[Rfam]
RNA sequence: CCUCCUUCUUGGCAUACCCGUGGUUGUUUGUACCCUUGUAUGUAUGUGUGGAGGAAUAAUCGAGCCAGUGCAAUGUCUUCGGUACCAGCAUGUUCCCCAUCAGCUGGUUCUAUCCUCAAUCACUGGAACACGU
Numbered sequence: 001c002c003u004c005c006u007u008c009u010u011g012g013c014a015u016a017c018c019c020g021u022g023g024u025u026g027u028u029u030g031u032a033c034c035c036u037u038g039u040a041u042g043u044a045u046g047u048g049u050g051g052a053g054g055a056a057u058a059a060u061c062g063a064g065c066c067a068g069u070g071c072a073a074u075g076u077c078u079u080c081g082g083u084a085c086c087a088g089c090a091u092g093u094u095c096c097c098c099a100u101c102a103g104c105u106g107g108u109u110c111u112a113u114c115c116u117c118a119a120u121c122a123c124u125g126g127a128a129c130a131c132g133u
Stems, first nucleotide, its partner, number of pairs: 001054005013042005020035001022034003066125005085107005091102002
Dot-bracket structure: (((((.......(((((..(.(((.......))))..))))).......)))))...........(((((..............(((((.((........))))))).............)))))........
Rfam assigns this 133-nucleotide RNA sequence from Sinocyclocheilus anshuiensis to the family "Small nucleolar RNA SNORA57". Its family is annotated with RNA processing and nucleolus in the Gene Ontology. The source organism's lineage runs through Eukaryota, Eumetazoa, Neopterygii, Cyprinoidei and Sinocyclocheilus. For this family Rfam cites "Identification of 13 novel human modification guide RNAs" (Vitali et al., Nucleic Acids Res, 2003). The base pairs follow the family's consensus structure, which was predicted with PFOLD. It scores 85 bits against the family's covariance model. From the family's description: U99 belongs to the H/ACA class of snoRNAs which are thought to guide the sites of modification of uridines to pseudouridines, the target for this family is unknown.